[Rfam]
RNA sequence: GUGCAUCCAGUAUGAAUUGAACCUAAGAAUUCGCCAUUUAUAAGUUGGGCACUUUAACCAUUCAGCCAUGAAUGU
Numbered sequence: 001g002u003g004c005a006u007c008c009a010g011u012a013u014g015a016a017u018u019g020a021a022c023c024u025a026a027g028a029a030u031u032c033g034c035c036a037u038u039u040a041u042a043a044g045u046u047g048g049g050c051a052c053u054u055u056a057a058c059c060a061u062u063c064a065g066c067c068a069u070g071a072a073u074g075u
Base pairs, nucleotide, nucleotide: 003075004074005073006072008070011025012024014022040069041068044066045065046064047063048062049061
The family of this 75-nucleotide RNA from Nicotiana tabacum is "Plastid-ycf2 5UTR RNA". Pairs were carried over by alignment from the consensus structure, which was predicted with LocARNA. Rfam classes the family as a cis-regulatory element. From the family's description: Plastid ycf2 is a non-coding RNA (ncRNA) recognised in plastids. It was found in the prime untranslated region (5UTR) of ycf2 genes, it presents a tRNA-like motif which suggests it can be involved in mRNA maturation, particularly involved in defining the precise 5' end of the transcript. Lineage of the source: Eukaryota > Spermatophyta > Solanales > Nicotianoideae > Nicotiana. It scores 66 bits against the family's covariance model.